[Rfam]
RNA sequence: AUACUUAACUGGAAGGGGAGAUACCAUGAUCACAAAGGUGGCUUUCCCAGGGUGAGGCUCAUCCAUUGCACUCCGGGUGUGAUGACUUCUGCGAUUUCCCCAAAUGUGGGAAACUCGACCGCACAGUUUGUGGUAGUGGAAGGCUGCGUUUGUGCUUUUCCCCU
Numbered sequence: 001a002u003a004c005u006u007a008a009c010u011g012g013a014a015g016g017g018g019a020g021a022u023a024c025c026a027u028g029a030u031c032a033c034a035a036a037g038g039u040g041g042c043u044u045u046c047c048c049a050g051g052g053u054g055a056g057g058c059u060c061a062u063c064c065a066u067u068g069c070a071c072u073c074c075g076g077g078u079g080u081g082a083u084g085a086c087u088u089c090u091g092c093g094a095u096u097u098c099c100c101c102a103a104a105u106g107u108g109g110g111a112a113a114c115u116c117g118a119c120c121g122c123a124c125a126g127u128u129u130g131u132g133g134u135a136g137u138g139g140a141a142g143g144c145u146g147c148g149u150u151u152g153u154g155c156u157u158u159u160c161c162c163c164u
Stems, first nucleotide, its partner, number of pairs: 012122001015119001016048006024041004049090004054086001056083001058081001060079005092117003095113003099109002138162002141159001143158001146155003